[Rfam]
RNA: narK RNA
Organism: Pseudomonas entomophila
RNA sequence: GGCCCGGCUUUUGCUGUCGCUCACUCAUCAGGCCAUCAACGUCGAUGGCCGACUUUCAUCACGACGAAGGCGCCGU
Numbered sequence: 001g002g003c004c005c006g007g008c009u010u011u012u013g014c015u016g017u018c019g020c021u022c023a024c025u026c027a028u029c030a031g032g033c034c035a036u037c038a039a040c041g042u043c044g045a046u047g048g049c050c051g052a053c054u055u056u057c058a059u060c061a062c063g064a065c066g067a068a069g070g071c072g073c074c075g076u
Base pairs, nucleotide, nucleotide: 031050032049033048034047035046036045037044